[Rfam]
RNA sequence: CCUGUGGAUCGUUAUAUCAAAUGAAAGUAGUUAGCAAUAUUAUGUUGCAACAAAAUCAGACGGAAGGAAGCAGGAA
Dot-bracket structure: (((((...(((((........(((.....(((.(((((.....))))))))....))))))))......)))))..
Numbered sequence: 001c002c003u004g005u006g007g008a009u010c011g012u013u014a015u016a017u018c019a020a021a022u023g024a025a026a027g028u029a030g031u032u033a034g035c036a037a038u039a040u041u042a043u044g045u046u047g048c049a050a051c052a053a054a055a056u057c058a059g060a061c062g063g064a065a066g067g068a069a070g071c072a073g074g075a076a
Stems, first nucleotide, its partner, number of pairs: 001074005009063005022058003030051003034048005

Shown here is a 76-nucleotide RNA sequence, a member of the family "RAGATH-18 RNA". The family's RNA type in Rfam is small RNA.